A member of the RNA family "Molybdenum/Tungsten riboswitch aptamer (Moco RNA motif)" from Desulfitobacterium hafniense, 133 nucleotides long. The organism belongs to Desulfitobacterium hafniense, within Bacteria. A search with the family's covariance model found it, with a score of 60 bits.
RNA sequence: CUGAAAAACGAUCUCCGAGCCGGAAUGAACCUAAAGAGCAAUUCUAUGGACACCGGACAGGGCCCAGGCCCUCGGGGUAUACUUGGAAACGGGUAUGCCUUCACGUUUGAAAAGGAGGUGGAUUAAAGCCAAC
Dot-bracket structure: .....(....((((((...((((......((...((((...))))..))...))))..(((((....)))))..(((((((((((....)))))))))))((......))...))))))....).........